Rfam assigns this 87-nucleotide sequence from Actinomadura soli to the family "ZMP/ZTP riboswitch aptamer (pfl RNA motif)". The family's consensus secondary structure is taken from published work.

RNA sequence: UGGCGGGCACGCGACUGGCGCAGUCAAGGUGGAGUUGACCACCGGGGAGCGAAAGUAGUCCGCACACCGCGCGCCUGGGUGUACGGG
Number, nucleotide and partner (000 for none) at each position: 001u000002g000003g056004c055005g000006g000007g000008c000009a000010c051011g050012c049013g000014a000015c046016u045017g075018g074019c073020g072021c071022a000023g000024u000025c000026a000027a000028g000029g042030u041031g040032g039033a000034g000035u000036u000037g000038a000039c032040c031041a030042c029043c000044g000045g016046g015047g000048a000049g012050c011051g010052a000053a000054a000055g004056u003057a000058g000059u000060c000061c000062g000063c000064a082065c081066a080067c079068c078069g000070c000071g021072c020073g019074c018075c017076u000077g000078g068079g067080u066081g065082u064083a000084c000085g000086g000087g000